Description
The family of this 184-nucleotide sequence from Chromobacterium sp. LK11 is "6S / SsrS RNA". The literature on the family includes a 2005 paper in RNA by Barrick et al., "6S RNA is a widespread regulator of eubacterial RNA polymerase that resembles an open promoter".

[Rfam]
RNA sequence: UACCCCCUGCGGUGUUUGUGAAGGCACACAAUUCCUUUGUACCAAUGCGUUCGCUUCAGGUUGCCAGCGUGAGUCAUGGGCGUGCCGCGUCCUCUUGAGGAUGCGCCCGAAAUGACUGGCAGGCGGCCCUCCCUGGAAACAGGGUACAAGCGAAUUUUGCCCGAACGACACUCGCGGGGGCUCC
Numbered sequence: 001u002a003c004c005c006c007c008u009g010c011g012g013u014g015u016u017u018g019u020g021a022a023g024g025c026a027c028a029c030a031a032u033u034c035c036u037u038u039g040u041a042c043c044a045a046u047g048c049g050u051u052c053g054c055u056u057c058a059g060g061u062u063g064c065c066a067g068c069g070u071g072a073g074u075c076a077u078g079g080g081c082g083u084g085c086c087g088c089g090u091c092c093u094c095u096u097g098a099g100g101a102u103g104c105g106c107c108c109g110a111a112a113u114g115a116c117u118g119g120c121a122g123g124c125g126g127c128c129c130u131c132c133c134u135g136g137a138a139a140c141a142g143g144g145u146a147c148a149a150g151c152g153a154a155u156u157u158u159g160c161c162c163g164a165a166c167g168a169c170a171c172u173c174g175c176g177g178g179g180g181c182u183c184c
Base pairs, nucleotide, nucleotide: 002182004180005179006178007177008176009175010174011173012171013170014169015168017167018166019165033153034152036150038148039147040146041145042144043143059128060127062125063124064123065122067120072117073116074115075114076113077112080106081105085100086099088097089096